[Rfam]
RNA sequence: AUUGCAGGUUUGAAGGCCAUAGCAGAAACACUUACAGCAUGGCCCAUCAUAUUCUGAUGAAUUUGCAAGUUCUGCU
Numbered sequence: 001a002u003u004g005c006a007g008g009u010u011u012g013a014a015g016g017c018c019a020u021a022g023c024a025g026a027a028a029c030a031c032u033u034a035c036a037g038c039a040u041g042g043c044c045c046a047u048c049a050u051a052u053u054c055u056g057a058u059g060a061a062u063u064u065g066c067a068a069g070u071u072c073u074g075c076u
Stems, first nucleotide, its partner, number of pairs: 015044004021076007028040001048065002051062004
Mammalian CPEB3 ribozyme: a 76-nucleotide sequence from Alligator sinensis. The organism belongs to Alligator, within Eukaryota. Pairs were carried over by alignment from the consensus structure, which is taken from published work.